RNA sequence: UAUUAAAAAUUUCAUCAAUUUAUACUGUUAAAAAUUAGCACGAUUGACAGAAUAAUCAGACAGUGAUAUAAGCGUAAUACGUCUACCUCAUGCUAACAUAUAUGGACCAGUUUUUAAUAAUAGAAAUAAAUAAAAAUUUUAACA
Dot-bracket structure: ..((((((.(((.((..((((.((.(.((((((..............................................................................)))))).).)).))))..)).))).))))))..
RNA: MIR7502 microRNA precursor family
Organism: Gossypium stocksii